[Rfam]
RNA sequence: AUGUGGGGAAGAGGCAAGAUGUUGGCAUAGCUGAUUCACUGUAAAUCGUCAGCAAUGCUACAUAUGGCCAUGUCCCCCAUUU
Numbered sequence: 001a002u003g004u005g006g007g008g009a010a011g012a013g014g015c016a017a018g019a020u021g022u023u024g025g026c027a028u029a030g031c032u033g034a035u036u037c038a039c040u041g042u043a044a045a046u047c048g049u050c051a052g053c054a055a056u057g058c059u060a061c062a063u064a065u066g067g068c069c070a071u072g073u074c075c076c077c078c079a080u081u082u
Stems, first nucleotide, its partner, number of pairs: 005077005011071001013069003017065001019063003023060006030053002

The record is an 82-nucleotide sequence from Panagrolaimus sp. ES5, which matches "mir-31 microRNA precursor family" in Rfam. It scores 57 bits against the family's covariance model. Taxonomically the source falls in Panagrolaimus (Eukaryota, Bilateria, Ecdysozoa, Rhabditida). For this family Rfam cites "The small RNA profile during Drosophila melanogaster development" (Aravin et al., Dev Cell, 2003). The family's consensus secondary structure was predicted with RNAalifold. Clan: mir-31 microRNA precursor family. Gene Ontology terms of the family: gene silencing by miRNA and RISC complex. The family has 75 seed sequences and 1,181 matches in Rfam 15.1.